This 32-nucleotide sequence belongs to the Rfam family "L31-Firmicutes ribosomal protein leader". By type it is a cis-regulatory leader. The family is grouped with related families in Rfam's "Ribosomal Protein L31 Leader clan".
RNA sequence: CUUUGAAUGAAGGUCAUUCAAGGCGGAAGGAG
Numbered sequence: 001c002u003u004u005g006a007a008u009g010a011a012g013g014u015c016a017u018u019c020a021a022g023g024c025g026g027a028a029g030g031a032g
Base pairs, nucleotide, nucleotide: 001023002022003021004020005019006018007017008016009015010014
Dot-bracket structure: ((((((((((...)))))))))).........